Rfam assigns this 111-nucleotide RNA to the family "Actinomyces-1 RNA". By type it is a small RNA.
[Rfam]
RNA sequence: CUCACCGCCGGGCGGGGGACGCCGCCAGGGUUGGGGAGCCCGAUGACCGGUCCCAUCUCCGAGGCGGCCACGGGUCCAAGGGAGCCCGCGGUCGCCGUCCCGGCGAAGGAG
Numbered sequence: 001c002u003c004a005c006c007g008c009c010g011g012g013c014g015g016g017g018g019a020c021g022c023c024g025c026c027a028g029g030g031u032u033g034g035g036g037a038g039c040c041c042g043a044u045g046a047c048c049g050g051u052c053c054c055a056u057c058u059c060c061g062a063g064g065c066g067g068c069c070a071c072g073g074g075u076c077c078a079a080g081g082g083a084g085c086c087c088g089c090g091g092u093c094g095c096c097g098u099c100c101c102g103g104c105g106a107a108g109g110a111g
Stems, first nucleotide, its partner, number of pairs: 006105007013061004021051004028041005063096006071088005